Source information:
SAH (S-adenosyl-L-homocysteine) riboswitch aptamer: a 120-nucleotide RNA sequence from Aquabacterium soli. It scores 53 bits against the family's covariance model. Lineage of the source: Bacteria > Pseudomonadati > Betaproteobacteria > Burkholderiales > Aquabacterium.
RNA sequence: CGUGUCGAGGAGCGUUGCAAGGCCAACCCUCUCAUUCAAGCGGUUUUAGGGCCGCCUGAGGUGUGAGAGAGACAGGGCCCCAGGCUUGACACGCACGUUUUGCAACGGCGCUCACCCCGC
Number, nucleotide and partner (000 for none) at each position: 001c000002g092003u091004g090005u089006c088007g087008a086009g000010g000011a000012g000013c000014g000015u000016u000017g000018c000019a000020a000021g079022g078023c077024c076025a000026a000027c000028c000029c000030u000031c000032u000033c000034a000035u000036u000037c000038a000039a000040g000041c000042g000043g000044u000045u000046u000047u000048a000049g000050g000051g000052c000053c000054g000055c000056c000057u000058g000059a000060g000061g000062u000063g000064u000065g000066a000067g000068a000069g000070a000071g000072a000073c000074a000075g000076g024077g023078c022079c021080c000081c000082a000083g000084g000085c000086u008087u007088g006089a005090c004091a003092c002093g000094c000095a000096c000097g000098u000099u000100u000101u000102g000103c000104a000105a000106c000107g000108g000109c000110g000111c000112u000113c000114a000115c000116c000117c000118c000119g000120c000